[Rfam]
RNA sequence: UUGUUAUCAAGAAAGGUGGAGGGAAUAGACCCUGUGAAGCCUUAGCAACCCUUUGCCUCCUGUGCAAAGAAGGUGCUAAAUUCUAUCUUGAGGCUGAAUGUUUUCAGUAUCCUUUAAUUUAGGCAAGAAUAGAUAACGA
Numbered sequence: 001u002u003g004u005u006a007u008c009a010a011g012a013a014a015g016g017u018g019g020a021g022g023g024a025a026u027a028g029a030c031c032c033u034g035u036g037a038a039g040c041c042u043u044a045g046c047a048a049c050c051c052u053u054u055g056c057c058u059c060c061u062g063u064g065c066a067a068a069g070a071a072g073g074u075g076c077u078a079a080a081u082u083c084u085a086u087c088u089u090g091a092g093g094c095u096g097a098a099u100g101u102u103u104u105c106a107g108u109a110u111c112c113u114u115u116a117a118u119u120u121a122g123g124c125a126a127g128a129a130u131a132g133a134u135a136a137c138g139a
Base pairs, nucleotide, nucleotide: 001139002138003137004136005135006134007133008132013043014042015041016040017039021032022031023030026085027084028083029082044077045076046075047074049073050072051069052068053067054066055065056064081131086128087127088126089125090124
Overview
Shown here is a 139-nucleotide sequence from Maribacter luteus, a member of the family "SAM riboswitch aptamer (S box leader)". The source organism's lineage runs through Bacteria, Pseudomonadati, Flavobacteriia, Flavobacteriaceae and Maribacter. From the family's description: The SAM riboswitch is found upstream of a number of genes which code for proteins involved in methionine or cysteine biosynthesis in Gram-positive bacteria. A search with the family's covariance model found it, with a score of 75 bits.